Shown here is a 73-nucleotide sequence, a member of the family "Fluoride riboswitch aptamer (crcB RNA motif)".
RNA sequence: GACAAGACGGGCGAUGGAGUCCGCCUGACCCAACCGCCCGGCCCCCCGUCGGGCUGAUGACUCCUGUCCACGU
Numbered sequence: 001g002a003c004a005a006g007a008c009g010g011g012c013g014a015u016g017g018a019g020u021c022c023g024c025c026u027g028a029c030c031c032a033a034c035c036g037c038c039c040g041g042c043c044c045c046c047c048g049u050c051g052g053g054c055u056g057a058u059g060a061c062u063c064c065u066g067u068c069c070a071c072g073u
Stems, first nucleotide, its partner, number of pairs: 010025004016064006036054007
Gene Ontology terms of the family: response to fluoride and positive regulation of gene expression.